[Rfam]
RNA sequence: AAAAAGGGCUUCUGCCGUGCGUGGCACGAGGGGGCACCACGCCACCCUCGCGGAAUCGACAUCAAGAGAUUUCGGAAGCACAAUUUUUGUGAGAAAGGGCUGCCGGUAACCGCCAAUUCCGGCACCCCG
Numbered sequence: 001a002a003a004a005a006g007g008g009c010u011u012c013u014g015c016c017g018u019g020c021g022u023g024g025c026a027c028g029a030g031g032g033g034g035c036a037c038c039a040c041g042c043c044a045c046c047c048u049c050g051c052g053g054a055a056u057c058g059a060c061a062u063c064a065a066g067a068g069a070u071u072u073c074g075g076a077a078g079c080a081c082a083a084u085u086u087u088u089g090u091g092a093g094a095a096a097g098g099g100c101u102g103c104c105g106g107u108a109a110c111c112g113c114c115a116a117u118u119c120c121g122g123c124a125c126c127c128c129g
Stems, first nucleotide, its partner, number of pairs: 008079005013026005027050006033043003051074007097127003102123005108118002

The record is a 129-nucleotide RNA from Dicaeum eximium, which matches "U11 spliceosomal RNA" in Rfam. The family's RNA type in Rfam is spliceosomal small nuclear RNA. The family's consensus secondary structure is taken from published work. A search with the family's covariance model found it, with a score of 104 bits.